[Rfam]
RNA: Small nucleolar RNA SNORD116
RNA sequence: GGAUCGGUGAUGACUCCCAUAAAUGCAUUCCUUCGAAAUCUAAACAAAAUGAAUGAGCAAUACCUACCAUCUUCUCAUCCUAACUGAGGUCC
Numbered sequence: 001g002g003a004u005c006g007g008u009g010a011u012g013a014c015u016c017c018c019a020u021a022a023a024u025g026c027a028u029u030c031c032u033u034c035g036a037a038a039u040c041u042a043a044a045c046a047a048a049a050u051g052a053a054u055g056a057g058c059a060a061u062a063c064c065u066a067c068c069a070u071c072u073u074c075u076c077a078u079c080c081u082a083a084c085u086g087a088g089g090u091c092c
Base pairs, nucleotide, nucleotide: 001092002091003090004089005088026055027054028053029052030051032047033046